[Rfam]
RNA sequence: AGACGACAAGGCUCAACCAUUCGUGAGAAUGGGGCGGAAAGCCCAUCGGGUCUCCACGAGACAGCCGGGUUACCGAA
Numbered sequence: 001a002g003a004c005g006a007c008a009a010g011g012c013u014c015a016a017c018c019a020u021u022c023g024u025g026a027g028a029a030u031g032g033g034g035c036g037g038a039a040a041g042c043c044c045a046u047c048g049g050g051u052c053u054c055c056a057c058g059a060g061a062c063a064g065c066c067g068g069g070u071u072a073c074c075g076a077a
Stems, first nucleotide, its partner, number of pairs: 012037002017032006040071004047067003050062005